[Rfam]
RNA sequence: UAAUAUGAAAAUAAUGCCUGCUGCCUUGGCAUAACAUCAAGAAGGCAUAAACAUCGCAAAAGUAGCAAAUAUAUAAUAAGAUGAGGAUGGUUUUAGUACGUAGGCGUUGCGGAACCCUCAAUGUAAAGAAGGUUCAGAUAGAGCAAUUAAUCGUGCAUGCUAGACUUACCUACCACACAAGGUGAUGGCGGACCAAGUAUCUAUGGAAGAUUUCCAGUCCUUAGCGAUA
Dot-bracket structure: .....................((((((..............)))))).....(((((........................(((((.(((.....(((((.....(((((.((((................)))).......)))))....))))).((((.(..............................).))))..............)))..)))))))))).
Rfam assigns this 229-nucleotide RNA sequence from Drosophila rhopaloa to the family "R2 RNA element". This family represents the 3' UTR region of the R2 retrotransposable element. This family is known to interact with the R2-encoded reverse transcriptase in a reaction known as target primed reverse transcription (TPRT). For this family Rfam cites "Reverse transcription of R2Bm RNA is primed by a nick at the chromosomal target site: a mechanism for non-LTR retrotransposition" (Luan et al., Cell, 1993). Its family is annotated with regulation of reverse transcription in the Gene Ontology. The base pairs follow the family's consensus structure, which is taken from published work. Taxonomically the source falls in Sophophora (Eukaryota, Schizophora, Drosophilini, Drosophila). Rfam classes the family as a cis-regulatory element.